[Rfam]
RNA sequence: UCCGGGGGAAGCUCACCGCCGAGGCCACCCACGGGGUGCCCGUCACCCGCCGGCCACGCCUCGGGGAAGGUCUGAGGGAAGGGCCGCCCGCGGCCCCAGCAGGGCCCCGCCCGCGCGGGCGGGUGAGCCACCAGCAAGGGGGGGCGCCGCGCUGGGCCGGCCUGGGCAGGAGAAGCUGGGAGCGGGGCGCGGGGGGCGCCGUCCCCCCAGCCACCCCCGCCCCGGCGGAUGCUCGUGGCCCCGCGGUGCUUUGAGACAGACUCACGGCCGGCGCGCUGAGUCCAAUGGGUGAGGUGGGGCACGGCCCCACAACCCAAUUCAGACUACUCUCCCCCGGG
Numbered sequence: 001u002c003c004g005g006g007g008g009a010a011g012c013u014c015a016c017c018g019c020c021g022a023g024g025c026c027a028c029c030c031a032c033g034g035g036g037u038g039c040c041c042g043u044c045a046c047c048c049g050c051c052g053g054c055c056a057c058g059c060c061u062c063g064g065g066g067a068a069g070g071u072c073u074g075a076g077g078g079a080a081g082g083g084c085c086g087c088c089c090g091c092g093g094c095c096c097c098a099g100c101a102g103g104g105c106c107c108c109g110c111c112c113g114c115g116c117g118g119g120c121g122g123g124u125g126a127g128c129c130a131c132c133a134g135c136a137a138g139g140g141g142g143g144g145c146g147c148c149g150c151g152c153u154g155g156g157c158c159g160g161c162c163u164g165g166g167c168a169g170g171a172g173a174a175g176c177u178g179g180g181a182g183c184g185g186g187g188c189g190c191g192g193g194g195g196g197c198g199c200c201g202u203c204c205c206c207c208c209a210g211c212c213a214c215c216c217c218c219g220c221c222c223c224g225g226c227g228g229a230u231g232c233u234c235g236u237g238g239c240c241c242c243g244c245g246g247u248g249c250u251u252u253g254a255g256a257c258a259g260a261c262u263c264a265c266g267g268c269c270g271g272c273g274c275g276c277u278g279a280g281u282c283c284a285a286u287g288g289g290u291g292a293g294g295u296g297g298g299g300c301a302c303g304g305c306c307c308c309a310c311a312a313c314c315c316a317a318u319u320c321a322g323a324c325u326a327c328u329c330u331c332c333c334c335c336g337g338g
Stems, first nucleotide, its partner, number of pairs: 001338004007332003012293006020063005034048005072322005082269004092106005107122006123265005129259001143250009294310007
The record is a 338-nucleotide RNA sequence from Anser cygnoides, which matches "Nuclear RNase P" in Rfam. It scores 142 bits against the family's covariance model. The organism belongs to Anser, within Eukaryota. About the family: Ribonuclease P (RNase P) is a ubiquitous endoribonuclease, found in archaea, bacteria and eukarya as well as chloroplasts and mitochondria.